RNA sequence: GCCAGUGUCAUUUUUGUGGUCGUGCAGCUAGUUCACUGGCUCCAGUUGCAUAGUCACAAAAGUGAUCAUUGAC
Numbered sequence: 001g002c003c004a005g006u007g008u009c010a011u012u013u014u015u016g017u018g019g020u021c022g023u024g025c026a027g028c029u030a031g032u033u034c035a036c037u038g039g040c041u042c043c044a045g046u047u048g049c050a051u052a053g054u055c056a057c058a059a060a061a062g063u064g065a066u067c068a069u070u071g072a073c
Base pairs, nucleotide, nucleotide: 003071004070005069006068007067008065009064010063011062012061013060014059015058016057017056018055019054020053023050024049025048026047027046028045029044
This 73-nucleotide RNA sequence from Cyprinus carpio belongs to the Rfam family "mir-153 microRNA precursor family". Its family is annotated with RISC complex and miRNA-mediated post-transcriptional gene silencing in the Gene Ontology. Rfam 15.1 lists 1,565 matches to the family in 711 species. NCBI's taxonomy places the organism under Eukaryota, Bilateria, Vertebrata, Osteoglossocephalai, Cyprinus carpio.